[Rfam]
RNA sequence: GGCUGGUCCGAAGGUAGUGAGUUAUCUCAAUUGAUUAUUCACAGUCAGUUACAGAUUGAACUCCUUGUUCUACUCUUCCCCAAUUCUCACCACUGCACUUGAUUAGUCUUAA
Numbered sequence: 001g002g003c004u005g006g007u008c009c010g011a012a013g014g015u016a017g018u019g020a021g022u023u024a025u026c027u028c029a030a031u032u033g034a035u036u037a038u039u040c041a042c043a044g045u046c047a048g049u050u051a052c053a054g055a056u057u058g059a060a061c062u063c064c065u066u067g068u069u070c071u072a073c074u075c076u077u078c079c080c081c082a083a084u085u086c087u088c089a090c091c092a093c094u095g096c097a098c099u100u101g102a103u104u105a106g107u108c109u110u111a112a
Stems, first nucleotide, its partner, number of pairs: 001108008010100002014096002017090005043074003047071002
Y RNA: a 112-nucleotide sequence from Sapajus apella.
The family has 104 seed sequences and 26,986 matches in Rfam 15.1.
Rfam classes the family as a non-coding RNA gene.
The match comes from Rfam's covariance-model search (68 bits).